Source information
A member of the RNA family "Small nucleolar RNA SNORA75" from Chelonoidis abingdonii, 138 nucleotides long.

RNA sequence: CCCUUCUCAAUGAGCUCCUUCCUGCCGUAAAAUCAGUGGCAGCCUGUGGAUUCGCACGAGAAGAAAAUUAAGUGCUCAGUGCUGGCAUAUUCACCUUCUGGCUUCAGAUGGGUGAUUAGCCACGGCUGUGCAACACUG
Numbered sequence: 001c002c003c004u005u006c007u008c009a010a011u012g013a014g015c016u017c018c019u020u021c022c023u024g025c026c027g028u029a030a031a032a033u034c035a036g037u038g039g040c041a042g043c044c045u046g047u048g049g050a051u052u053c054g055c056a057c058g059a060g061a062a063g064a065a066a067a068u069u070a071a072g073u074g075c076u077c078a079g080u081g082c083u084g085g086c087a088u089a090u091u092c093a094c095c096u097u098c099u100g101g102c103u104u105c106a107g108a109u110g111g112g113u114g115a116u117u118a119g120c121c122a123c124g125g126c127u128g129u130g131c132a133a134c135a136c137u138g
Stems, first nucleotide, its partner, number of pairs: 003063006014055002016050003022042007074131002077128003095110001097108004
Its family is annotated with RNA processing and nucleolus in the Gene Ontology. It scores 84 bits against the family's covariance model. U23 belongs to the H/ACA class of snoRNAs. snoRNAs bind a number of proteins (including dyskerin, Gar1p and Nop10p in the case of the H/ACA class) to form snoRNP complexes. For this family Rfam cites "The expanding snoRNA world" (Bachellerie et al., Biochimie, 2002).